[Rfam]
A member of the RNA family "ZMP/ZTP riboswitch aptamer (pfl RNA motif)" from Cohnella fermenti, 86 nucleotides long.
Gene Ontology terms of the family: one-carbon metabolic process and regulation of purine nucleotide biosynthetic process.
It scores 51 bits against the family's covariance model.
Taxonomically the source falls in Cohnella (Bacteria, Bacillati, Bacillota, Paenibacillaceae).
Pairs were carried over by alignment from the consensus structure, which is taken from published work.
RNA sequence: AACCCCGCAUGUGACUGGCGAAGAUCAGUGGAAUGAACCACGAGGGAGCACGCGGGAGGAACCGACCGUUCGCCUGGGCAAAGUAU
Numbered sequence: 001a002a003c004c005c006c007g008c009a010u011g012u013g014a015c016u017g018g019c020g021a022a023g024a025u026c027a028g029u030g031g032a033a034u035g036a037a038c039c040a041c042g043a044g045g046g047a048g049c050a051c052g053c054g055g056g057a058g059g060a061a062c063c064g065a066c067c068g069u070u071c072g073c074c075u076g077g078g079c080a081a082a083g084u085a086u
Stems, first nucleotide, its partner, number of pairs: 004056005010050003015045002017074005028041004066078002